[Rfam]
RNA sequence: GUAGUAAAGAAGAAGUCAUCCGCUUCUCACCUUUUCGGCAAUCGCGCUGGCAGGGUUCAUAAAAGGUUAACACACAUGCAAUGUGUCUUUUUGGAGCGGAUAACGGAUUAUCCGCUUUUUUUAAUGUAU
Numbered sequence: 001g002u003a004g005u006a007a008a009g010a011a012g013a014a015g016u017c018a019u020c021c022g023c024u025u026c027u028c029a030c031c032u033u034u035u036c037g038g039c040a041a042u043c044g045c046g047c048u049g050g051c052a053g054g055g056u057u058c059a060u061a062a063a064a065g066g067u068u069a070a071c072a073c074a075c076a077u078g079c080a081a082u083g084u085g086u087c088u089u090u091u092u093g094g095a096g097c098g099g100a101u102a103a104c105g106g107a108u109u110a111u112c113c114g115c116u117u118u119u120u121u122u123a124a125u126g127u128a129u
Stems, first nucleotide, its partner, number of pairs: 011027006029056003035050005095116009